[Rfam]
RNA: Mammalian CPEB3 ribozyme
Organism: Crocodylus porosus
Nucleotides: 076
Stems, first nucleotide, its partner, number of pairs: 012044001014043003020076007027039003048065006
Number, partner (000 for none) and nucleotide at each position: 001000u002000a003000a004000g005000g006000u007000g008000c009000c010000c011000g012044g013000g014043g015042g016041u017000c018000a019000c020076a021075g022074u023073a024072g025071a026070a027039g028038u029037g030000c031000u032000c033000a034000u035000g036000a037029c038028a039027u040000a041016g042015c043014c044012c045000u046000g047000u048065c049064a050063g051062a052061u053060u054000g055000c056000a057000a058000u059000g060053a061052a062051u063050c064049u065048g066000c067000a068000a069000a070026u071025u072024c073023u074022g075021c076020u